[Rfam]
RNA sequence: UGCACAUCGUAGUAAAAUGCUCAGACUCCUGUGGUGGCCGCUUAUGUACCACGGACGUUUCAGCAUGUGUGGUGGUGUCUA
Numbered sequence: 001u002g003c004a005c006a007u008c009g010u011a012g013u014a015a016a017a018u019g020c021u022c023a024g025a026c027u028c029c030u031g032u033g034g035u036g037g038c039c040g041c042u043u044a045u046g047u048a049c050c051a052c053g054g055a056c057g058u059u060u061c062a063g064c065a066u067g068u069g070u071g072g073u074g075g076u077g078u079c080u081a
Base pairs, nucleotide, nucleotide: 004078005077006076007075008074009073010072012070015068017066018065019064020063021062023060024059025058026057027055028054029053034052035051036050037049040047041046
Background:
The family of this 81-nucleotide RNA from Hipposideros armiger is "mir-105 microRNA precursor family". Its family is annotated with molecular_function, RISC complex and miRNA-mediated post-transcriptional gene silencing in the Gene Ontology. The family has 23 seed sequences and 245 matches in Rfam 15.1. The organism belongs to Hipposideros, within Eukaryota.